Rfam assigns this 125-nucleotide RNA sequence from Bucco capensis to the family "Small nucleolar RNA ACA64". The source organism's lineage runs through Eukaryota, Dipnotetrapodomorpha, Neoaves, Bucconidae and Bucco. The family's RNA type in Rfam is H/ACA-box small nucleolar RNA. A reference for the family is Schattner et al. (2006), "A computational screen for mammalian pseudouridylation guide H/ACA RNAs", RNA.
RNA sequence: AUAAUUUUUAAAUUGAUGAGGGUCUUCUGUGGCCCCUGGUGCCAUAACUGUGCCAACAGCAGAGGGAGCAUUAAACUCAUUGCCCACGGGAAAGUGUGGGGAGUGAUACCCAUGUUCCUAGAAUC
Number, nucleotide and partner (000 for none) at each position: 001a000002u000003a000004a000005u000006u050007u000008u000009u047010a045011a000012a000013u000014u041015g040016a000017u000018g000019a000020g000021g034022g033023u032024c031025u000026u000027c000028u000029g000030u000031g024032g023033c022034c021035c000036c000037u000038g000039g000040u015041g014042c000043c000044a000045u010046a000047a009048c000049u000050g006051u000052g000053c000054c000055a000056a000057c000058a000059g000060c000061a000062g000063a000064g000065g118066g000067a116068g115069c114070a113071u112072u000073a000074a000075a000076c000077u106078c105079a104080u103081u102082g000083c000084c000085c098086a097087c096088g000089g000090g000091a000092a000093a000094g000095u000096g087097u086098g085099g000100g000101g000102a081103g080104u079105g078106a077107u000108a000109c000110c000111c000112a071113u070114g069115u068116u067117c000118c065119u000120a000121g000122a000123a000124u000125c000